[Rfam]
RNA: Metazoan signal recognition particle RNA
RNA sequence: ACUGGGAGCGUGGCGCACUCCUGUAACCUAGCGUCUAGGGGUCAGGUUUAGUGGAUGACUUGCGGUGGGGAACCACUAUCGCAGUAUUCCUCACGUUGACUGGAUGUCCGCACUAAGCUUGGCAUCAAUAUGGAGACCCCGAAGAAGUUUGGGGUGUCCAGGUUGCAUAAUGAGGGGCGCACCGGGCCAGGGGGGCAACCCAGCAGCCAAAAGUCCCCGUGUCGAACAGUAGUGGGAUCGCAUCCGGGAGUGAGAAUUCUGUGGUAGCCUUACCAAUAUAGUUAGACCUAAAUCUUU
Numbered sequence: 001a002c003u004g005g006g007a008g009c010g011u012g013g014c015g016c017a018c019u020c021c022u023g024u025a026a027c028c029u030a031g032c033g034u035c036u037a038g039g040g041g042u043c044a045g046g047u048u049u050a051g052u053g054g055a056u057g058a059c060u061u062g063c064g065g066u067g068g069g070g071a072a073c074c075a076c077u078a079u080c081g082c083a084g085u086a087u088u089c090c091u092c093a094c095g096u097u098g099a100c101u102g103g104a105u106g107u108c109c110g111c112a113c114u115a116a117g118c119u120u121g122g123c124a125u126c127a128a129u130a131u132g133g134a135g136a137c138c139c140c141g142a143a144g145a146a147g148u149u150u151g152g153g154g155u156g157u158c159c160a161g162g163u164u165g166c167a168u169a170a171u172g173a174g175g176g177g178c179g180c181a182c183c184g185g186g187c188c189a190g191g192g193g194g195g196c197a198a199c200c201c202a203g204c205a206g207c208c209a210a211a212a213g214u215c216c217c218c219g220u221g222u223c224g225a226a227c228a229g230u231a232g233u234g235g236g237a238u239c240g241c242a243u244c245c246g247g248g249a250g251u252g253a254g255a256a257u258u259c260u261g262u263g264g265u266a267g268c269c270u271u272a273c274c275a276a277u278a279u280a281g282u283u284a285g286a287c288c289u290a291a292a293u294c295u296u297u
Stems, first nucleotide, its partner, number of pairs: 001042003004022005010016001027039003044295008056284005064274007076267009086257003090254005096248001100247008108236002111234005117227001119225007126165004131160004136155008166172002174217005185208003192201003